[Rfam]
RNA sequence: UGGUAGAUGCACCCUGAUAACCCACUCCCCUAAUUGACUAAAUGUCUAGUUAGGGGUUUUUUUU
Numbered sequence: 001u002g003g004u005a006g007a008u009g010c011a012c013c014c015u016g017a018u019a020a021c022c023c024a025c026u027c028c029c030c031u032a033a034u035u036g037a038c039u040a041a042a043u044g045u046c047u048a049g050u051u052a053g054g055g056g057u058u059u060u061u062u063u064u
Stems, first nucleotide, its partner, number of pairs: 002013003027056010

The family of this 64-nucleotide sequence from Dulcicalothrix desertica is "Nitrogen stress-induced RNA 1". The match comes from Rfam's covariance-model search (58 bits). On this family, see Ionescu et al., J Mol Biol 2010: "Heterocyst-specific transcription of NsiR1, a non-coding RNA encoded in a tandem array of direct repeats in cyanobacteria". Rfam 15.1 lists 962 matches to the family in 163 species. The pairing is the family consensus, mapped onto this sequence.